[Rfam]
RNA sequence: GGUCACGAGAGCCAGCGACAAGCCCCAGCUAGCUGGCCGGCAACCCUCCCACCGCGGUGGGGUGCCCUGGGUGAGGACCUGGCCGCACCGCCGACCGGCGGACGCGGCAAGCGCGGGCG
Numbered sequence: 001g002g003u004c005a006c007g008a009g010a011g012c013c014a015g016c017g018a019c020a021a022g023c024c025c026c027a028g029c030u031a032g033c034u035g036g037c038c039g040g041c042a043a044c045c046c047u048c049c050c051a052c053c054g055c056g057g058u059g060g061g062g063u064g065c066c067c068u069g070g071g072u073g074a075g076g077a078c079c080u081g082g083c084c085g086c087a088c089c090g091c092c093g094a095c096c097g098g099c100g101g102a103c104g105c106g107g108c109a110a111g112c113g114c115g116g117g118c119g
Base pairs, nucleotide, nucleotide: 001079002078003077004076009038011037012036013035014034015033016032021030022029039066040065041064044062045061046060048057049056082108083107084106085105086104088101089100090099091098092097
RNA: SAM (S-adenosyl methionine) riboswitch aptamer